[Rfam]
RNA sequence: UAUGGCCGGAGCGGGGGUUCGCGCUGCGAAUUUGUCUCUAUUCCUCGACGCCGGUGUGCAGGAAGUCCACAGUUCUGCCGGAGUAUGGCUGGCUUCUCCCAUGCGUUAUCGCAAUACGGGGUUGUCGAUGUCUUCGGAUGCGCAAGCGGAUGAAUAUUCCCGCUAUGCGGUAGACGGGGCGGCGGUUGCUGAAAUGAAAGCGAUUAUUGCGCACCAUCGGGCCAGCUGAUUUUUACCGUUGCAUCAUGUCGCCCAAUAUGAUGCUUGCUCGUACCAGGCCCCUGCUAUUACAGGGGCCUUUUUUU
Numbered sequence: 001u002a003u004g005g006c007c008g009g010a011g012c013g014g015g016g017g018u019u020c021g022c023g024c025u026g027c028g029a030a031u032u033u034g035u036c037u038c039u040a041u042u043c044c045u046c047g048a049c050g051c052c053g054g055u056g057u058g059c060a061g062g063a064a065g066u067c068c069a070c071a072g073u074u075c076u077g078c079c080g081g082a083g084u085a086u087g088g089c090u091g092g093c094u095u096c097u098c099c100c101a102u103g104c105g106u107u108a109u110c111g112c113a114a115u116a117c118g119g120g121g122u123u124g125u126c127g128a129u130g131u132c133u134u135c136g137g138a139u140g141c142g143c144a145a146g147c148g149g150a151u152g153a154a155u156a157u158u159c160c161c162g163c164u165a166u167g168c169g170g171u172a173g174a175c176g177g178g179g180c181g182g183c184g185g186u187u188g189c190u191g192a193a194a195u196g197a198a199a200g201c202g203a204u205u206a207u208u209g210c211g212c213a214c215c216a217u218c219g220g221g222c223c224a225g226c227u228g229a230u231u232u233u234u235a236c237c238g239u240u241g242c243a244u245c246a247u248g249u250c251g252c253c254c255a256a257u258a259u260g261a262u263g264c265u266u267g268c269u270c271g272u273a274c275c276a277g278g279c280c281c282c283u284g285c286u287a288u289u290a291c292a293g294g295g296g297c298c299u300u301u302u303u304u305u
Base pairs, nucleotide, nucleotide: 003276004275005274009270010269011268012267013266014265015264016041021037023035024034026032044083045082046081050078051077053076054075056073057072061068062067084130085129086128088126089124091122093120094119095118101115102114103112104111105110132140134138146161148159149158150157166263167262170259171258172257177254178253179252180251181250182249183248184247185245187243188242189241193240194239195238196237199234200233202231203230204229205228206227208225214221215220277298278297279296280295281294282293283292284291